Rfam assigns this 276-nucleotide RNA sequence from Lipotes vexillifer to the family "RNase MRP". The family's consensus secondary structure is taken from published work. Lineage of the source: Eukaryota > Amniota > Eutheria > Laurasiatheria > Lipotes. A search with the family's covariance model found it, with a score of 202 bits. The family's RNA type in Rfam is ribozyme. Rfam's curators write: RNase MRP is an enzymatically active ribonucleoprotein with two distinct roles in eukaryotes. In mitochondria it plays a direct role in the initiation of mitochondrial DNA replication. Clan: RNaseP clan.
RNA sequence: GCUCGUGCUGAAGGCCUGUUUCCUAGGCUACGAACAGGGGACUAGUUCCUUAUUUGCGCCUAGGGGAAAGUCCCCGGACCAGGGGCAGAGAGUGCCGCGUGCGCGUGCACGUUAGACCCUCCCUGCUCUUCACGAAUAAACCCGCCAAGAAGCGAUCCCGCAGCUGCCGGAGGAGCAGAGCGGCGUGUUGCGGGGGGUGUCGCCCGUCUACUUCUAUAGUUACGCAGGCAGUGCGCCUCCGCGCGCCAACCACACGGGGCUCAUUCUCAGCGCGGC
Numbered sequence: 001g002c003u004c005g006u007g008c009u010g011a012a013g014g015c016c017u018g019u020u021u022c023c024u025a026g027g028c029u030a031c032g033a034a035c036a037g038g039g040g041a042c043u044a045g046u047u048c049c050u051u052a053u054u055u056g057c058g059c060c061u062a063g064g065g066g067a068a069a070g071u072c073c074c075c076g077g078a079c080c081a082g083g084g085g086c087a088g089a090g091a092g093u094g095c096c097g098c099g100u101g102c103g104c105g106u107g108c109a110c111g112u113u114a115g116a117c118c119c120u121c122c123c124u125g126c127u128c129u130u131c132a133c134g135a136a137u138a139a140a141c142c143c144g145c146c147a148a149g150a151a152g153c154g155a156u157c158c159c160g161c162a163g164c165u166g167c168c169g170g171a172g173g174a175g176c177a178g179a180g181c182g183g184c185g186u187g188u189u190g191c192g193g194g195g196g197g198u199g200u201c202g203c204c205c206g207u208c209u210a211c212u213u214c215u216a217u218a219g220u221u222a223c224g225c226a227g228g229c230a231g232u233g234c235g236c237c238u239c240c241g242c243g244c245g246c247c248a249a250c251c252a253c254a255c256g257g258g259g260c261u262c263a264u265u266c267u268c269a270g271c272g273c274g275g276c
Base pairs, nucleotide, nucleotide: 003275004274005273006272007271008270009269010268011267014229015228016227017226018225019224022064023063024062025061026060027059028058037051038050039049040048041047069261070260072259073258074257075256084096085095086094087093097112098111099110100109101108102107114200116198121195122194123193124192125191126190131187132186133185142183143182144181145180166176167175231246232245233244234243235242236241